RNA sequence: CACUAGAGUAGAAGCGGUCAGGAGCCAGGCUCCGGGACAUUGCUCUUUGG
Number, nucleotide and partner (000 for none) at each position: 001c000002a000003c000004u000005a046006g045007a044008g043009u042010a041011g000012a000013a000014g000015c035016g000017g000018u037019c036020a000021g033022g032023a031024g030025c029026c000027a000028g000029g025030c024031u023032c022033c021034g000035g015036g019037a018038c000039a000040u000041u010042g009043c008044u007045c006046u005047u000048u000049g000050g000